[Rfam]
The family of this 76-nucleotide RNA from Ameiurus melas is "mir-7563 microRNA precursor family". The base pairs follow the family's consensus structure, which was predicted with RNAalifold.

RNA sequence: ACCACGUACUUACCGUCUAUAUAGUAACUGAAAUACAUGUAUCUCACCUACUAUAUAGUAGGUAAGUACGCGGUUU
Numbered sequence: 001a002c003c004a005c006g007u008a009c010u011u012a013c014c015g016u017c018u019a020u021a022u023a024g025u026a027a028c029u030g031a032a033a034u035a036c037a038u039g040u041a042u043c044u045c046a047c048c049u050a051c052u053a054u055a056u057a058g059u060a061g062g063u064a065a066g067u068a069c070g071c072g073g074u075u076u
Stems, first nucleotide, its partner, number of pairs: 001074003005070010017058010029046003033042003
It scores 81 bits against the family's covariance model.